[Rfam]
RNA sequence: CCCUGCACCGUGCGUGCAGGGACAUCUUCCGACUGCAACAAGGGGUCUGCCCGUG
Numbered sequence: 001c002c003c004u005g006c007a008c009c010g011u012g013c014g015u016g017c018a019g020g021g022a023c024a025u026c027u028u029c030c031g032a033c034u035g036c037a038a039c040a041a042g043g044g045g046u047c048u049g050c051c052c053g054u055g
Stems, first nucleotide, its partner, number of pairs: 001021008
The record is a 55-nucleotide sequence from Winslowiella iniecta, which matches "ClpQY promoter" in Rfam.
A search with the family's covariance model found it, with a score of 56 bits.
On this family, see Lien et al., Open Microbiol J 2009: "Regulation of clpQ(+)Y(+) (hslV(+)U(+)) gene expression in Escherichia coli".
The base pairs follow the family's consensus structure.